[Rfam]
The family of this 121-nucleotide RNA from Labrus bergylta is "Small nucleolar RNA U6-53/MBII-28". Pairs were carried over by alignment from the consensus structure. Gene Ontology terms of the family: nucleolus and RNA processing. The match comes from Rfam's covariance-model search (71 bits). The family's RNA type in Rfam is C/D-box small nucleolar RNA. The organism belongs to Labrus, within Eukaryota.
RNA sequence: CUCCGAUGAUGAUCCAGCCAUGCUAAUACUGAUACACCAGCCAGAUGGUGUUUAUCUGCCUGGGUGUACAUGAGUUCAACUGACUUUCUCACGCUGAUUGUGUCAGUGUGGGCUGAGGAGA
Numbered sequence: 001c002u003c004c005g006a007u008g009a010u011g012a013u014c015c016a017g018c019c020a021u022g023c024u025a026a027u028a029c030u031g032a033u034a035c036a037c038c039a040g041c042c043a044g045a046u047g048g049u050g051u052u053u054a055u056c057u058g059c060c061u062g063g064g065u066g067u068a069c070a071u072g073a074g075u076u077c078a079a080c081u082g083a084c085u086u087u088c089u090c091a092c093g094c095u096g097a098u099u100g101u102g103u104c105a106g107u108g109u110g111g112g113c114u115g116a117g118g119a120g121a
Stems, first nucleotide, its partner, number of pairs: 001120004042058005
Dot-bracket structure: ((((.....................................(((((.......)))))..........................................................)))).